[Rfam]
RNA sequence: AGAUAUCAAGGUCAAAAGGUCAAAAAGCUGUUCGUACUUGCACGAUAAAGCUUUUGAACUUAGGGCCUGCAGGACAUGAGGAAGUAGCGAUUUACGUAGUAAAUCUCCGGAUUCCGAAUGUCCUGGAAUUGCGGGAGCUGCAAAGCAGCGGAGCAAUUCGUAGAUAUCA
Numbered sequence: 001a002g003a004u005a006u007c008a009a010g011g012u013c014a015a016a017a018g019g020u021c022a023a024a025a026a027g028c029u030g031u032u033c034g035u036a037c038u039u040g041c042a043c044g045a046u047a048a049a050g051c052u053u054u055u056g057a058a059c060u061u062a063g064g065g066c067c068u069g070c071a072g073g074a075c076a077u078g079a080g081g082a083a084g085u086a087g088c089g090a091u092u093u094a095c096g097u098a099g100u101a102a103a104u105c106u107c108c109g110g111a112u113u114c115c116g117a118a119u120g121u122c123c124u125g126g127a128a129u130u131g132c133g134g135g136a137g138c139u140g141c142a143a144a145g146c147a148g149c150g151g152a153g154c155a156a157u158u159c160g161u162a163g164a165u166a167u168c169a
Stems, first nucleotide, its partner, number of pairs: 002168006010067004016061003020057003024054006031047001032045004070125008080115004087107001089105007126159007137149004
RNA: Clostridiales-1 RNA